[Rfam]
RNA sequence: GCUGGGAACAGCCUCACAUGAUGACCCUUCUCUCUCUGAUGGCUGUGAUGGUGAUGAUCAUCAAAGCCUCUAAGAAGUUGGCUGAAGAGGCUGUUCCUCU
Number, nucleotide and partner (000 for none) at each position: 001g000002c000003u000004g000005g000006g000007a095008a094009c093010a092011g091012c090013c089014u088015c087016a000017c000018a000019u000020g000021a000022u000023g000024a000025c000026c000027c000028u000029u000030c000031u000032c000033u000034c000035u000036c000037u000038g000039a000040u000041g000042g000043c000044u000045g000046u000047g000048a000049u000050g000051g000052u000053g000054a000055u000056g000057a000058u000059c000060a000061u000062c000063a000064a000065a000066g000067c000068c000069u000070c000071u000072a000073a000074g000075a000076a000077g000078u000079u000080g000081g000082c000083u000084g000085a000086a000087g015088a014089g013090g012091c011092u010093g009094u008095u007096c000097c000098u000099c000100u000

Description
Shown here is a 100-nucleotide sequence from Hemiprocne comata, a member of the family "Small nucleolar RNA SNORD125". Lineage of the source: Eukaryota > Eumetazoa > Euteleostomi > Strisores > Hemiprocne. For this family Rfam cites "snoSeeker: an advanced computational package for screening of guide and orphan snoRNA genes in the human genome" (Yang et al., Nucleic Acids Res, 2006). It is annotated as a C/D-box small nucleolar RNA. The family is grouped with related families in Rfam's "SNORD61 clan". The base pairs follow the family's consensus structure, which was predicted with WAR.